Shown here is a 76-nucleotide sequence from Microcebus murinus, a member of the family "mir-1290 microRNA precursor family". The family's consensus secondary structure was predicted with RNAalifold.
Nucleotides: 076
Base pairs, nucleotide, nucleotide: 001076002075003074004073005072006071007070011068013066014065018063019062020061021060022059023058024057027056028055029054030053031052032051034049035048036047037046038045039044
Number, partner (000 for none) and nucleotide at each position: 001076g002075a003074g004073c005072a006071u007070c008000a009000u010000g011068u012000c013066g014065a015000c016000a017000c018063u019062c020061a021060a022059a023058a024057a025000g026000u027056u028055u029054c030053a031052a032051a033000u034049u035048u036047u037046g038045g039044a040000g041000c042000a043000u044039u045038u046037c047036a048035g049034a050000u051032u052031u053030u054029g055028g056027a057024u058023u059022u060021u061020u062019g063018g064000a065014u066013u067000u068011g069000g070007g071006a072005u073004g074003c075002u076001c
The match comes from Rfam's covariance-model search (91 bits).